[Rfam]
Notes:
Shown here is a 261-nucleotide sequence from Alphacoronavirus chicagoense, a member of the family "Alphacoronavirus 3'UTR". The organism belongs to Alphacoronavirus chicagoense, within Viruses. Rfam's curators write: The 3' UTR of alphacoronaviruses consists of two small hairpins (PK-SL2) which can form an alternate conformation (PK-SL1) where the loop region of the second hairpin interacts with the stem of the first hairpin. PK-SL2 has been confirmed in HCoV-229E and HCoV-NL63 by in vitro structure probing experiments. Downstream of this pseudoknot lies the hypervariable region (HVR), which is supported by many covarying basepairs in alphacoronaviruses. Further, a conserved octanucleotide sequence is present in the HVR. A reference for the family is Madhugiri et al. (2014), "RNA structure analysis of alphacoronavirus terminal genome regions", Virus Res. Rfam's curators put it in the seed alignment. The family's RNA type in Rfam is cis-regulatory element. Pairs were carried over by alignment from the consensus structure.
RNA sequence: AGCUGCUUUUAAUUAACAUGAUCCCUUGCUUUGGCUUGACAAGGAUCUAGUCUUAUACACAAUGGUAAGCCAGUGGUAGUAAAGGUAUAAGAAAUUUGCUACUAUGUUACUGAACCUAGGUGAACGCUAGUAUAACUCAUUACAAAUGUGCUGGAGUAAUCAAAGAUCGCAUUGACGAGCCAACAAUGGAAGAGCCAGUCAUUUGUCUUGAGACCUAUCUAGUUAGUAACUGCUAAUGGAACGGUUUCGAUAUGGAUACAC
Numbered sequence: 001a002g003c004u005g006c007u008u009u010u011a012a013u014u015a016a017c018a019u020g021a022u023c024c025c026u027u028g029c030u031u032u033g034g035c036u037u038g039a040c041a042a043g044g045a046u047c048u049a050g051u052c053u054u055a056u057a058c059a060c061a062a063u064g065g066u067a068a069g070c071c072a073g074u075g076g077u078a079g080u081a082a083a084g085g086u087a088u089a090a091g092a093a094a095u096u097u098g099c100u101a102c103u104a105u106g107u108u109a110c111u112g113a114a115c116c117u118a119g120g121u122g123a124a125c126g127c128u129a130g131u132a133u134a135a136c137u138c139a140u141u142a143c144a145a146a147u148g149u150g151c152u153g154g155a156g157u158a159a160u161c162a163a164a165g166a167u168c169g170c171a172u173u174g175a176c177g178a179g180c181c182a183a184c185a186a187u188g189g190a191a192g193a194g195c196c197a198g199u200c201a202u203u204u205g206u207c208u209u210g211a212g213a214c215c216u217a218u219c220u221a222g223u224u225a226g227u228a229a230c231u232g233c234u235a236a237u238g239g240a241a242c243g244g245u246u247u248c249g250a251u252a253u254g255g256a257u258a259c260a261c
Stems, first nucleotide, its partner, number of pairs: 052069005073105011109245004119231003126223005136210001144203002150199005170179001180189002